RNA: Small nucleolar RNA SNORD113/SNORD114 family
RNA sequence: UGGAUUAAUGAUGACUACUGACAGUGUGUGAGUCAUAUACGAUGAGUGUGUGUCUGGAACUCUGAGGCCCAA
Numbered sequence: 001u002g003g004a005u006u007a008a009u010g011a012u013g014a015c016u017a018c019u020g021a022c023a024g025u026g027u028g029u030g031a032g033u034c035a036u037a038u039a040c041g042a043u044g045a046g047u048g049u050g051u052g053u054c055u056g057g058a059a060c061u062c063u064g065a066g067g068c069c070c071a072a
Stems, first nucleotide, its partner, number of pairs: 002070002005067002